[Rfam]
RNA sequence: UCUACUCAAAUUUUCCGAGCUUAAUCUUCUAAAGCAAUGGCUAUGAAGACAAGCCUAUGGGUAUAAGGAGAAAUCCUUAUGCCUCCCGUAUUUGGAAAGGAAAGUUUUAAACUGUGGA
Numbered sequence: 001u002c003u004a005c006u007c008a009a010a011u012u013u014u015c016c017g018a019g020c021u022u023a024a025u026c027u028u029c030u031a032a033a034g035c036a037a038u039g040g041c042u043a044u045g046a047a048g049a050c051a052a053g054c055c056u057a058u059g060g061g062u063a064u065a066a067g068g069a070g071a072a073a074u075c076c077u078u079a080u081g082c083c084u085c086c087c088g089u090a091u092u093u094g095g096a097a098a099g100g101a102a103a104g105u106u107u108u109a110a111a112c113u114g115u116g117g118a
Base pairs, nucleotide, nucleotide: 006109011104012103013102014101015100016099019054020053021052022051025049026048027047028046029045033042034041035040059084060083061082062081063080064079065078066077067076068075069074085095086094